About this RNA: Rfam assigns this 119-nucleotide RNA sequence from Trichloromonas acetexigens to the family "Molybdenum/Tungsten riboswitch aptamer (Moco RNA motif)".
RNA sequence: UACUGACGACUUCUCCGAAUCGCAGGGCCUACCGGGAACGGCCCCACGGCCUGCGAUCCAUGGGUUCGGCUGGAAACGGCCGGGCCUCCCGUUUGGAAAGGAGACCCUCGGUUGACCGA
Numbered sequence: 001u002a003c004u005g006a007c008g009a010c011u012u013c014u015c016c017g018a019a020u021c022g023c024a025g026g027g028c029c030u031a032c033c034g035g036g037a038a039c040g041g042c043c044c045c046a047c048g049g050c051c052u053g054c055g056a057u058c059c060a061u062g063g064g065u066u067c068g069g070c071u072g073g074a075a076a077c078g079g080c081c082g083g084g085c086c087u088c089c090c091g092u093u094u095g096g097a098a099a100g101g102a103g104a105c106c107c108u109c110g111g112u113u114g115a116c117c118g119a
Base pairs, nucleotide, nucleotide: 012104013103014102015101016100019057020056021055022054023053024052025051027050028049029048034044035043036042062087063086064085065084066083067082068081069080070079071078072077088096089095

Lineage of the source: Bacteria > Pseudomonadati > Desulfuromonadia > Desulfuromonadales > Trichloromonas. A search with the family's covariance model found it, with a score of 63 bits.